Background
Actinobacteria sRNA Ms_IGR-5: a 224-nucleotide sequence from Streptomyces sp. NL15-2K. Pairs were carried over by alignment from the consensus structure. Rfam classes the family as a small RNA. The organism belongs to Streptomyces, within Bacteria.
RNA sequence: ACUUCGGAAGGGAGGUGGUUCGGCAGAUGAAUUCAUACCGGACGGAAGAGGUGGCUGCGGGCUAGCGGCCCUUCGCCCCACACAGUGCGGUGCCGGACCAGCGUGUACGAGAUACACGCAGCCGGCCGAAUCCAACGCAGUCACCCGACCCGCGAGCUCGCCGGUACGUCCGGCCGGCUCCCCCGCCGUCAGGCGGAGGGACCCGAGCUCGCGGGUCGUCUGCG
Numbered sequence: 001a002c003u004u005c006g007g008a009a010g011g012g013a014g015g016u017g018g019u020u021c022g023g024c025a026g027a028u029g030a031a032u033u034c035a036u037a038c039c040g041g042a043c044g045g046a047a048g049a050g051g052u053g054g055c056u057g058c059g060g061g062c063u064a065g066c067g068g069c070c071c072u073u074c075g076c077c078c079c080a081c082a083c084a085g086u087g088c089g090g091u092g093c094c095g096g097a098c099c100a101g102c103g104u105g106u107a108c109g110a111g112a113u114a115c116a117c118g119c120a121g122c123c124g125g126c127c128g129a130a131u132c133c134a135a136c137g138c139a140g141u142c143a144c145c146c147g148a149c150c151c152g153c154g155a156g157c158u159c160g161c162c163g164g165u166a167c168g169u170c171c172g173g174c175c176g177g178c179u180c181c182c183c184c185g186c187c188g189u190c191a192g193g194c195g196g197a198g199g200g201a202c203c204c205g206a207g208c209u210c211g212c213g214g215g216u217c218g219u220c221u222g223c224g
Base pairs, nucleotide, nucleotide: 015058016057017056018055019054060127061126062125063124065122066121068119069118146218147217148216149215150214151213152212153211154210155209156208157207158206160178161177162176163175164174165173